Overview: The family of this 309-nucleotide RNA from Cladonia borealis is "Group I catalytic intron". The source organism's lineage runs through Eukaryota, saccharomyceta, Lecanorales, Lecanorineae and Cladonia. A reference for the family is Cech (1990), "Self-splicing of group I introns", Annu Rev Biochem. It scores 58 bits against the family's covariance model. Gene Ontology term of the family: Group I intron splicing.
RNA sequence: UUAUAUGAGUCAUGACCCUCGGGGUCACGUUAGGGGAAAACGUGUCUAUGGGGGUAAAUUGUCAAACUCCGGGGAACUCCUAAAGCUUAAGGUACCAAGCUCUAAAUGAAAAUGUAUGAGUGGCUGAAGUAAUUACUCAGGUACGGUAAUAAGUCUUAAGAUGAGUGAAAACGAAAUGGACAAUCGCGGAUCUAAGUCAACUAUACUAAACAGUAUAGCUGUAAAAGAGCAACGAGUAGACGGCAGUUGAUUAAUUGAGCCCAGCUUGGUUAAUUUAAGGUGUACUCUAAGGGGUUCCGAAAGGAAUAG
Numbered sequence: 001u002u003a004u005a006u007g008a009g010u011c012a013u014g015a016c017c018c019u020c021g022g023g024g025u026c027a028c029g030u031u032a033g034g035g036g037a038a039a040a041c042g043u044g045u046c047u048a049u050g051g052g053g054g055u056a057a058a059u060u061g062u063c064a065a066a067c068u069c070c071g072g073g074g075a076a077c078u079c080c081u082a083a084a085g086c087u088u089a090a091g092g093u094a095c096c097a098a099g100c101u102c103u104a105a106a107u108g109a110a111a112a113u114g115u116a117u118g119a120g121u122g123g124c125u126g127a128a129g130u131a132a133u134u135a136c137u138c139a140g141g142u143a144c145g146g147u148a149a150u151a152a153g154u155c156u157u158a159a160g161a162u163g164a165g166u167g168a169a170a171a172c173g174a175a176a177u178g179g180a181c182a183a184u185c186g187c188g189g190a191u192c193u194a195a196g197u198c199a200a201c202u203a204u205a206c207u208a209a210a211c212a213g214u215a216u217a218g219c220u221g222u223a224a225a226a227g228a229g230c231a232a233c234g235a236g237u238a239g240a241c242g243g244c245a246g247u248u249g250a251u252u253a254a255u256u257g258a259g260c261c262c263a264g265c266u267u268g269g270u271u272a273a274u275u276u277a278a279g280g281u282g283u284a285c286u287c288u289a290a291g292g293g294g295u296u297c298c299g300a301a302a303g304g305a306a307u308a309g
Stems, first nucleotide, its partner, number of pairs: 005030003009026001011024001013022001035041001057248005063242001068190004072185002078180003191228002198221002203216005232288001234287005250274011294307005
Dot-bracket structure: ....(((.(.(.(........).).).)))....(.....)...............(((((.(....((((((....(((.................................................................................................)))...)).))))((.....((...(((((....)))))...)).....))...[.[[[[[...).))))).(((((((((((...)))))))))))........]]]]]].....(((((....)))))..